[Rfam]
RNA: transfer-messenger RNA
RNA sequence: GGGGGUGACUGGUUUCGACUUCGUACGUCGAGGCAGGUGAAGCGAGCCGAGGAAGCCGACGUUGUCUCGUGAAUCAGUCGUCGGAAAACGAUAAGCGCCAAUAUCAAGCGCGAUUCGCUCGCCCUCGCCGCCUGAGGCUAGGAACUGAGCGUGUCGGUCCGGGGUCGCCUUCGCCCCGGUUUACCGGCAUCAGCUAGAAGGCUGGCCAAUCGAGCCUUGUCGCGGGGCUCGUGCGGCGAGAUCAAUCGCGACUGGGCCCGUCACACCGACUCGCUCGCGUGAUCGGAGGGGCCGAGUAGAGGCACAGCGAGCUGCGCUCGGAGAAGCCCUGGCAACACGACGAAGGACCCGGGUUCGAUUCCCGGCACCUCCACCA
Numbered sequence: 001g002g003g004g005g006u007g008a009c010u011g012g013u014u015u016c017g018a019c020u021u022c023g024u025a026c027g028u029c030g031a032g033g034c035a036g037g038u039g040a041a042g043c044g045a046g047c048c049g050a051g052g053a054a055g056c057c058g059a060c061g062u063u064g065u066c067u068c069g070u071g072a073a074u075c076a077g078u079c080g081u082c083g084g085a086a087a088a089c090g091a092u093a094a095g096c097g098c099c100a101a102u103a104u105c106a107a108g109c110g111c112g113a114u115u116c117g118c119u120c121g122c123c124c125u126c127g128c129c130g131c132c133u134g135a136g137g138c139u140a141g142g143a144a145c146u147g148a149g150c151g152u153g154u155c156g157g158u159c160c161g162g163g164g165u166c167g168c169c170u171u172c173g174c175c176c177c178g179g180u181u182u183a184c185c186g187g188c189a190u191c192a193g194c195u196a197g198a199a200g201g202c203u204g205g206c207c208a209a210u211c212g213a214g215c216c217u218u219g220u221c222g223c224g225g226g227g228c229u230c231g232u233g234c235g236g237c238g239a240g241a242u243c244a245a246u247c248g249c250g251a252c253u254g255g256g257c258c259c260g261u262c263a264c265a266c267c268g269a270c271u272c273g274c275u276c277g278c279g280u281g282a283u284c285g286g287a288g289g290g291g292c293c294g295a296g297u298a299g300a301g302g303c304a305c306a307g308c309g310a311g312c313u314g315c316g317c318u319c320g321g322a323g324a325a326g327c328c329c330u331g332g333c334a335a336c337a338c339g340a341c342g343a344a345g346g347a348c349c350c351g352g353g354u355u356c357g358a359u360u361c362c363c364g365g366c367a368c369c370u371c372c373a374c375c376a
Stems, first nucleotide, its partner, number of pairs: 001372007019345006032333001034331004043320005048069005056084006123142003127138003152189006159179007167202006205237003211231003219252005255293005261287002268284002275309001280306002349365005